S4-Bacteroidia ribosomal protein leader: a 49-nucleotide sequence from Paraprevotella clara. A reference for the family is Eckert and Weinberg (2020), "Discovery of 20 novel ribosomal leader candidates in bacteria and archaea", BMC Microbiol. The family's consensus secondary structure is taken from published work. The family is grouped with related families in Rfam's "Ribosomal Protein S4 Leader clan".

RNA sequence: GAUUCCAACGAUUUUCAAGGGCUUCAUUUCCUUUCUGUAGUCGCGGCUG
Number, nucleotide and partner (000 for none) at each position: 001g042002a041003u040004u039005c000006c037007a036008a000009c000010g000011a000012u000013u000014u000015u000016c000017a000018a000019g000020g000021g000022c000023u000024u000025c000026a000027u000028u000029u000030c000031c000032u000033u000034u000035c000036u007037g006038u000039a004040g003041u002042c001043g000044c000045g000046g000047c000048u000049g000